Background:
A member of the RNA family "mir-1993 microRNA precursor family" from Capitella teleta, 66 nucleotides long. The family's consensus secondary structure was predicted with RNAalifold. Rfam's curators put it in the seed alignment. Taxonomically the source falls in Capitella (Eukaryota, Eumetazoa, Lophotrochozoa, Sedentaria).
[Rfam]
RNA sequence: GCAUUUCGGGAAUUUCGGCAUCAUUCUGUUGGCUUAACUAGUAUUAUGCUGAUAUUCACGAGAUGA
Number, nucleotide and partner (000 for none) at each position: 001g000002c000003a064004u063005u062006u061007c060008g059009g000010g057011a056012a055013u054014u000015u052016c051017g050018g049019c048020a047021u046022c000023a044024u043025u000026c000027u000028g000029u037030u036031g035032g000033c000034u000035u031036a030037a029038c000039u000040a000041g000042u000043a024044u023045u000046a021047u020048g019049c018050u017051g016052a015053u000054a013055u012056u011057c010058a000059c008060g007061a006062g005063a004064u003065g000066a000